[Rfam]
RNA sequence: AAUGCAAUGAUGAUUUUAAUGGGUUUUAGCAGUGGCGGCGUCAGUCGCCGUGAGCUUUCAAUCCAAAAAACGACUUCUCUUUCCACUGAGCAUU
Numbered sequence: 001a002a003u004g005c006a007a008u009g010a011u012g013a014u015u016u017u018a019a020u021g022g023g024u025u026u027u028a029g030c031a032g033u034g035g036c037g038g039c040g041u042c043a044g045u046c047g048c049c050g051u052g053a054g055c056u057u058u059c060a061a062u063c064c065a066a067a068a069a070a071c072g073a074c075u076u077c078u079c080u081u082u083c084c085a086c087u088g089a090g091c092a093u094u
Stems, first nucleotide, its partner, number of pairs: 001094005
Dot-bracket structure: (((((....................................................................................)))))

The family of this 94-nucleotide RNA from Oryza sativa is "Small nucleolar RNA Z152/R70/R12/". The base pairs follow the family's consensus structure, which was predicted with PFOLD. The family has 9 seed sequences and 604 matches in Rfam 15.1. Lineage of the source: Eukaryota > Viridiplantae > Mesangiospermae > Poales > Oryza sativa. For this family Rfam cites "Identification of 66 box C/D snoRNAs in Arabidopsis thaliana: extensive gene duplications generated multiple isoforms predicting new ribosomal RNA 2'-O-methylation sites" (Barneche et al., J Mol Biol, 2001).